[Rfam]
RNA: MIR398 microRNA precursor family
Organism: Lupinus albus
RNA sequence: AGAGGUUCUACAGGGUCGUACUGAGAACACAUGAAGAUUGCUGAGAGGUUUCAGAUUCCUCUCAGCUCAUGUGUUCUCAGGUCGCCCCUGCUGGACUUUC
Numbered sequence: 001a002g003a004g005g006u007u008c009u010a011c012a013g014g015g016u017c018g019u020a021c022u023g024a025g026a027a028c029a030c031a032u033g034a035a036g037a038u039u040g041c042u043g044a045g046a047g048g049u050u051u052c053a054g055a056u057u058c059c060u061c062u063c064a065g066c067u068c069a070u071g072u073g074u075u076c077u078c079a080g081g082u083c084g085c086c087c088c089u090g091c092u093g094g095a096c097u098u099u100c
Base pairs, nucleotide, nucleotide: 007094008093011090012089013088014087017084018083023078024077025076026075027074028073029072030071031070032069